The family of this 123-nucleotide sequence from Trabulsiella odontotermitis is "Enterobacteria greA leader".
The source organism's lineage runs through Bacteria, Pseudomonadota, Gammaproteobacteria, Enterobacteriaceae and Trabulsiella.
The literature on the family includes a 2010 paper in Genome Biol by Naville and Gautheret, "Premature terminator analysis sheds light on a hidden world of bacterial transcriptional attenuation".
Rfam links the family to the GO term regulation of gene expression.
Pairs were carried over by alignment from the consensus structure, which is taken from published work.
RNA sequence: GCCAUACUAAGGCGCAUUACCCUGAAAAGUAAACGAUGACCCAUAGUGAACUUCAGGUUAAAAUGCGUAUCAAAUGAAAAAAUUGCUGCUGACCUGGGGUUUUCCCCCGGGUCAGUUUUCUUU
Numbered sequence: 001g002c003c004a005u006a007c008u009a010a011g012g013c014g015c016a017u018u019a020c021c022c023u024g025a026a027a028a029g030u031a032a033a034c035g036a037u038g039a040c041c042c043a044u045a046g047u048g049a050a051c052u053u054c055a056g057g058u059u060a061a062a063a064u065g066c067g068u069a070u071c072a073a074a075u076g077a078a079a080a081a082a083u084u085g086c087u088g089c090u091g092a093c094c095u096g097g098g099g100u101u102u103u104c105c106c107c108c109g110g111g112u113c114a115g116u117u118u119u120c121u122u123u
Stems, first nucleotide, its partner, number of pairs: 001040001003038003011034001014030002041048001057071001059069002088116011